[Rfam]
Small nucleolar RNA SNORD53/SNORD92: a 76-nucleotide sequence from Loxodonta africana. On this family, see Kiss-Laszlo et al., Cell 1996: "Site-specific ribose methylation of preribosomal RNA: a novel function for small nucleolar RNAs". Its Rfam clan is "SNORD52 clan". Rfam classes the family as a C/D-box small nucleolar RNA. The sequence is in the family's curated seed alignment.
RNA sequence: AUGCUGUGAUGACAUCCACGUGGUUUCGCUUCUGGCUGAGUUUCAGUGAUGACACUUCUCUUGGCUGUCUGAGCAU
Numbered sequence: 001a002u003g004c005u006g007u008g009a010u011g012a013c014a015u016c017c018a019c020g021u022g023g024u025u026u027c028g029c030u031u032c033u034g035g036c037u038g039a040g041u042u043u044c045a046g047u048g049a050u051g052a053c054a055c056u057u058c059u060c061u062u063g064g065c066u067g068u069c070u071g072a073g074c075a076u
Stems, first nucleotide, its partner, number of pairs: 001076004